Fluoride riboswitch aptamer (crcB RNA motif): a 68-nucleotide RNA from Eoetvoesiella caeni.
[Rfam]
RNA sequence: CUUUUUCUCGGAGAUGGCAUUCUCCAUAAACCGCCGAAACCUCUUCGGCUGAUGAUGCCUGCAAGUUC
Numbered sequence: 001c002u003u004u005u006u007c008u009c010g011g012a013g014a015u016g017g018c019a020u021u022c023u024c025c026a027u028a029a030a031c032c033g034c035c036g037a038a039a040c041c042u043c044u045u046c047g048g049c050u051g052a053u054g055a056u057g058c059c060u061g062c063a064a065g066u067u068c
Stems, first nucleotide, its partner, number of pairs: 010025004016059006033049006

Lineage of the source: Bacteria > Betaproteobacteria > Burkholderiales > Alcaligenaceae > Eoetvoesiella.